Shown here is a 141-nucleotide sequence from Falsochrobactrum shanghaiense, a member of the family "Alphaproteobacterial sRNA BjrC1505". The family's RNA type in Rfam is small RNA. A search with the family's covariance model found it, with a score of 81 bits.
RNA sequence: GAGCGGAUUAACCCUUUAUUAAUCCUAAUCGCUUUAAAUGGUUUACAUCCAGUUUGGCUGGAUUCUUACCGAGUGGUUUAGCCACUCUGUUUGACGCCUCCCUGUUAAACUCCUGAGAGCCGCCCUUGCGGCUCUUUUUUU
Numbered sequence: 001g002a003g004c005g006g007a008u009u010a011a012c013c014c015u016u017u018a019u020u021a022a023u024c025c026u027a028a029u030c031g032c033u034u035u036a037a038a039u040g041g042u043u044u045a046c047a048u049c050c051a052g053u054u055u056g057g058c059u060g061g062a063u064u065c066u067u068a069c070c071g072a073g074u075g076g077u078u079u080a081g082c083c084a085c086u087c088u089g090u091u092u093g094a095c096g097c098c099u100c101c102c103u104g105u106u107a108a109a110c111u112c113c114u115g116a117g118a119g120c121c122g123c124c125c126u127u128g129c130g131g132c133u134c135u136u137u138u139u140u141u
Base pairs, nucleotide, nucleotide: 001043002042004040005014006013015037016036021034022033024031047063048062049061050060071087072086073085074084075083076082093106094105095104096103115136116135117134118133119132120131121130122129123128